[Rfam]
RNA sequence: GAAAACCGGGCGGGAGAGAUCGUGGGCCUCAUGCGCUACACGGCACCGAAGGGGCAAGUCCCUCGCUUCAAACUCUCAGGUACCAGGACCGCCCGGGAUUG
Numbered sequence: 001g002a003a004a005a006c007c008g009g010g011c012g013g014g015a016g017a018g019a020u021c022g023u024g025g026g027c028c029u030c031a032u033g034c035g036c037u038a039c040a041c042g043g044c045a046c047c048g049a050a051g052g053g054g055c056a057a058g059u060c061c062c063u064c065g066c067u068u069c070a071a072a073c074u075c076u077c078a079g080g081u082a083c084c085a086g087g088a089c090c091g092c093c094c095g096g097g098a099u100u101g
Stems, first nucleotide, its partner, number of pairs: 006096008020043004045081003048077002052075003058068001
RNA: Glycine riboswitch aptamer
Organism: Glycomyces buryatensis